Mammalian CPEB3 ribozyme: a 76-nucleotide RNA sequence from Alligator sinensis.
The family has 14 seed sequences and 5,706 matches in Rfam 15.1.
The match comes from Rfam's covariance-model search (40 bits).
Taxonomically the source falls in Alligator (Eukaryota, Deuterostomia, Chordata, Archosauria).
The family's consensus secondary structure is taken from published work.
[Rfam]
RNA sequence: GGUUGCAAGUUUGAGGCCAGAGCAGAAGCGCGCAUGGCACAGCCUGUCAGAUUUCAACGAAUCUGCAAAUUCCACU
Numbered sequence: 001g002g003u004u005g006c007a008a009g010u011u012u013g014a015g016g017c018c019a020g021a022g023c024a025g026a027a028g029c030g031c032g033c034a035u036g037g038c039a040c041a042g043c044c045u046g047u048c049a050g051a052u053u054u055c056a057a058c059g060a061a062u063c064u065g066c067a068a069a070u071u072c073c074a075c076u
Stems, first nucleotide, its partner, number of pairs: 015044003021076002025072003028040001030038001048065007
Dot-bracket structure: ..............[[[...((..((((.(.......).).]]]...(((((((....)))))))....)))..))